[Rfam]
Rfam assigns this 96-nucleotide RNA sequence from Paenibacillus albilobatus to the family "c-di-GMP-I-GGC riboswitch aptamer". The family is grouped with related families in Rfam's "c-di-GMP_I riboswitch clan". The organism belongs to Paenibacillus, within Bacteria. For this family Rfam cites "Bioinformatic analysis of riboswitch structures uncovers variant classes with altered ligand specificity" (Weinberg et al., Proc Natl Acad Sci U S A, 2017). The family's consensus secondary structure is taken from published work. It scores 66 bits against the family's covariance model.
RNA sequence: UUGAACAAAGGCAAACCCGUACGAAAGUCGGGGACGCAAAGCCACGGGUCUUACUCCAUGAAGCCUAUUCAUGGACUGACAGCCGGGUUGCUCAUG
Numbered sequence: 001u002u003g004a005a006c007a008a009a010g011g012c013a014a015a016c017c018c019g020u021a022c023g024a025a026a027g028u029c030g031g032g033g034a035c036g037c038a039a040a041g042c043c044a045c046g047g048g049u050c051u052u053a054c055u056c057c058a059u060g061a062a063g064c065c066u067a068u069u070c071a072u073g074g075a076c077u078g079a080c081a082g083c084c085g086g087g088u089u090g091c092u093c094a095u096g
Stems, first nucleotide, its partner, number of pairs: 001096001003093002011037002016032004021028002035082001040089004045085003048080003